[Rfam]
RNA sequence: UAGCGCUAAGGGCAAACCUGCCGAAAGGCGGGGACGCAAAGCCACAGGGUCUAAGGCGCCUAUCGGCGCUAUGAUAGCCUGGCCGCCGCG
Numbered sequence: 001u002a003g004c005g006c007u008a009a010g011g012g013c014a015a016a017c018c019u020g021c022c023g024a025a026a027g028g029c030g031g032g033g034a035c036g037c038a039a040a041g042c043c044a045c046a047g048g049g050u051c052u053a054a055g056g057c058g059c060c061u062a063u064c065g066g067c068g069c070u071a072u073g074a075u076a077g078c079c080u081g082g083c084c085g086c087c088g089c090g
Stems, first nucleotide, its partner, number of pairs: 012037002017032006041083003046080003049075003056069004
A member of the RNA family "c-di-GMP-I riboswitch aptamer" from Pelotomaculum propionicicum, 90 nucleotides long. The organism belongs to Pelotomaculum, within Bacteria. The family's consensus secondary structure is taken from published work.